[Rfam]
RNA sequence: CUGCUCACCAGGGCUGGGUCCUAUCCAUAUGGUGGUCCUGACCUACCCUCUGAGCAAGAGAAUUGGGACUGGUUUGGGGGUAUCCUGUCUAAGUGGGCACAGGACACCACGGUUUCCAGUACAACA
Numbered sequence: 001c002u003g004c005u006c007a008c009c010a011g012g013g014c015u016g017g018g019u020c021c022u023a024u025c026c027a028u029a030u031g032g033u034g035g036u037c038c039u040g041a042c043c044u045a046c047c048c049u050c051u052g053a054g055c056a057a058g059a060g061a062a063u064u065g066g067g068a069c070u071g072g073u074u075u076g077g078g079g080g081u082a083u084c085c086u087g088u089c090u091a092a093g094u095g096g097g098c099a100c101a102g103g104a105c106a107c108c109a110c111g112g113u114u115u116c117c118a119g120u121a122c123a124a125c126a
Stems, first nucleotide, its partner, number of pairs: 003055004012047002017043004025035002066122001068120005074112003079108003083104004087098004
RNA: Small Cajal body specific RNA 23
Organism: Marmota monax